[Rfam]
RNA sequence: GAUGAGAAGUCUCCGGAAUCGCUGUACUGCAUUGAUGAUUCCCUCGAACCCUAGUCUGUCUGAUGGCUGCGGCAGCUCUGU
Numbered sequence: 001g002a003u004g005a006g007a008a009g010u011c012u013c014c015g016g017a018a019u020c021g022c023u024g025u026a027c028u029g030c031a032u033u034g035a036u037g038a039u040u041c042c043c044u045c046g047a048a049c050c051c052u053a054g055u056c057u058g059u060c061u062g063a064u065g066g067c068u069g070c071g072g073c074a075g076c077u078c079u080g081u
Stems, first nucleotide, its partner, number of pairs: 002081003006077001